[Rfam]
The record is a 175-nucleotide sequence from Dialister succinatiphilus, which matches "Group II catalytic intron D1-D4-3" in Rfam. A search with the family's covariance model found it, with a score of 134 bits. Lineage of the source: Bacteria > Veillonellales > Veillonellaceae > Dialister > Dialister succinatiphilus.
RNA sequence: UCCACCGUGAGGUGGGGUCUGAAGGAAGCCGGAGGCAAAACCUUGGUCCGACGAAUAGAAACUUUAUACGAAGGCAGAGUCUGACAGGAUGAGGCAGCCACCUAUGCUGAAGUCCAACGAUGGUCUUGGCCAGGCUUUGUAAAUAAAGCGGAUAGAUGAGGUGAAAGAUUACACU
Numbered sequence: 001u002c003c004a005c006c007g008u009g010a011g012g013u014g015g016g017g018u019c020u021g022a023a024g025g026a027a028g029c030c031g032g033a034g035g036c037a038a039a040a041c042c043u044u045g046g047u048c049c050g051a052c053g054a055a056u057a058g059a060a061a062c063u064u065u066a067u068a069c070g071a072a073g074g075c076a077g078a079g080u081c082u083g084a085c086a087g088g089a090u091g092a093g094g095c096a097g098c099c100a101c102c103u104a105u106g107c108u109g110a111a112g113u114c115c116a117a118c119g120a121u122g123g124u125c126u127u128g129g130c131c132a133g134g135c136u137u138u139g140u141a142a143a144u145a146a147a148g149c150g151g152a153u154a155g156a157u158g159a160g161g162u163g164a165a166a167g168a169u170u171a172c173a174c175u
Base pairs, nucleotide, nucleotide: 001016002015003014004013005012006011028175031172036167040162041161042160043159044158045157046153047152048151049150050149062148063147064146065145066144067143074140075139076138078136079135080134081133082132083131087115088114089113090112093108094107095106096105